A member of the RNA family "c-di-GMP-II-GAG riboswitch aptamer" from Deinococcus peraridilitoris, 77 nucleotides long. NCBI's taxonomy places the organism under Bacteria, Thermotogati, Deinococcota, Deinococci, Deinococcus peraridilitoris. On this family, see Weinberg et al., Proc Natl Acad Sci U S A 2017: "Bioinformatic analysis of riboswitch structures uncovers variant classes with altered ligand specificity". Pairs were carried over by alignment from the consensus structure, which is taken from published work. Its Rfam clan is "c-di-GMP_II riboswitch clan".

[Rfam]
RNA sequence: CUCCUGAUGCGCAAUGACCUGCCUUCCAUACCCGGUCACCCGGAAGACAGCGAGCCAAUGGUGAGACCGACCAGGAG
Numbered sequence: 001c002u003c004c005u006g007a008u009g010c011g012c013a014a015u016g017a018c019c020u021g022c023c024u025u026c027c028a029u030a031c032c033c034g035g036u037c038a039c040c041c042g043g044a045a046g047a048c049a050g051c052g053a054g055c056c057a058a059u060g061g062u063g064a065g066a067c068c069g070a071c072c073a074g075g076a077g
Base pairs, nucleotide, nucleotide: 001077002076003075004074005073006072011055012054019050020049021048023046024045025044026043034068035067036064037063038062039061040060